[Rfam]
RNA sequence: GUCGGCUUUGUGACGAUGGCGCCCGAAAGCGUCACCUUCACCACGGACCUGCCGGGCCGGAUUUCCUCGCUUCGCGUCGCCGAUGUGCGGGCGCGGGUGGAUGGCAUCAUCCUGCGGCGCGCCUUCGAGGAAGGCAGCGAGGUCAAGGCGGGGCAGUUGCUCUUCAAGAUCGA
Dot-bracket structure: ..((((.((.((..((.((...(.......)....))))..))..))...)))).(((..(((.(.(.((.(..(..((((........))))((.(..(.(((.(...).))))..).))........)..))).).).)))...))).......(..((.....))...).
Burkholderia RNA 14: a 173-nucleotide RNA from a Parvibaculaceae bacterium. It scores 62 bits against the family's covariance model. Rfam describes the family as follows. Co-purified with Hfq, expression confirmed by Northern blot. Putative functional homologue of PA-SraF. Overlaps coding sequence. NCBI's taxonomy places the organism under Bacteria, Pseudomonadati, Pseudomonadota, Hyphomicrobiales, Parvibaculaceae. A reference for the family is Ramos et al. (2013), "Experimental identification of small non-coding regulatory RNAs in the opportunistic human pathogen Burkholderia cenocepacia J2315", Genomics.